[Rfam]
RNA: Metazoan signal recognition particle RNA
Organism: Lepisosteus oculatus
Nucleotides: 295
Base pairs, nucleotide, nucleotide: 001045002044003043004023005022006021007020008019009018010017028042029041030040054295056293059291060290061289062288064286065285066284067283068282070280071279072278073277078273079272080271081270082269083268085266086265088263089262090261093260094259095258096257097256106254107253108252109251110250111249112248113242114241116240118238119237120236122233125230126229127228129226130225131170132169133168134167136165137164139162140161142159143158144157145156146155147154148153171177172176179223180222181221182220189215190214191213192212198207199206200205
Number, partner (000 for none) and nucleotide at each position: 001045g002044c003043c004023g005022g006021g007020c008019g009018c010017g011000g012000u013000g014000g015000c016000g017010u018009g019008u020007g021006u022005c023004u024000g025000u026000c027000a028042u029041c030040c031000c032000a033000g034000u035000u036000c037000c038000u039000g040030g041029g042028a043003g044002g045001c046000u047000g048000g049000g050000g051000c052000u053000g054295g055000c056293a057000g058000a059291g060290u061289g062288c063000u064286u065285g066284a067283g068282c069000u070280c071279a072278g073277g074000u075000c076000u077000c078273c079272u080271g081270g082269g083268g084000c085266g086265u087000g088263g089262c090261g091000g092000a093260c094259a095258c096257c097256u098000u099000c100000g101000u102000c103000g104000a105000c106254c107253g108252g109251g110250u111249g112248u113242c114241c115000g116240c117000a118238c119237u120236g121000a122233g123000c124000u125230c126229g127228g128000c129226a130225u131170c132169g133168a134167u135000a136165u137164g138000g139162u140161g141000c142159u143158c144157c145156u146155g147154g148153g149000u150000g151000a152000g153148c154147c155146c156145g157144g158143g159142a160000a161140u162139a163000g164137c165136a166000g167134g168133u169132c170131g171177c172176c173000u174000g175000a176172g177171g178000a179223g180222g181221g182220g183000c184000g185000a186000a187000c188000c189215g190214g191213c192212c193000c194000a195000g196000g197000u198207c199206c200205g201000g202000a203000a204000a205200c206199g207198g208000a209000g210000c211000a212192g213191g214190u215189c216000a217000g218000a219000a220182c221181c222180c223179c224000c225130g226129u227000a228127c229126c230125g231000c232000c233122c234000g235000g236120u237119a238118g239000g240116g241114g242113g243000u244000g245000g246000u247000c248112g249111c250110g251109c252108c253107u254106g255000u256097g257096g258095g259094u260093g261090u262089g263088u264000a265086a266085u267000a268083c269082u270081u271080c272079a273078g274000c275000g276000u277073u278072u279071u280070g281000u282068g283067u284066u285065c286064a287000c288062g289061c290060a291059c292000g293056u294000u295054u